[Rfam]
RNA sequence: GGGAUAUGAUGAGUGGUCAACGUUCGCAACAAAUAUGCGAGAUGGGUGUCCGCCCUAGCCUGGUUACGACAAUUGGGCACUCUCAUCUUUACCAAUCUGAUCCC
Numbered sequence: 001g002g003g004a005u006a007u008g009a010u011g012a013g014u015g016g017u018c019a020a021c022g023u024u025c026g027c028a029a030c031a032a033a034u035a036u037g038c039g040a041g042a043u044g045g046g047u048g049u050c051c052g053c054c055c056u057a058g059c060c061u062g063g064u065u066a067c068g069a070c071a072a073u074u075g076g077g078c079a080c081u082c083u084c085a086u087c088u089u090u091a092c093c094a095a096u097c098u099g100a101u102c103c104c
Stems, first nucleotide, its partner, number of pairs: 001104004014094004023041005044082007061075004
A member of the RNA family "Small nucleolar RNA Z279/snoR105/snoR108" from Vitis vinifera, 104 nucleotides long. The literature on the family includes a 2002 paper in Curr Biol by Marker et al., "Experimental RNomics: identification of 140 candidates for small non-messenger RNAs in the plant Arabidopsis thaliana". Rfam describes the family as follows. This family includes the plant snoRNAs known as Z279, snoR105 and snoR108. Pairs were carried over by alignment from the consensus structure, which was predicted with PFOLD. Rfam's curators put it in the seed alignment.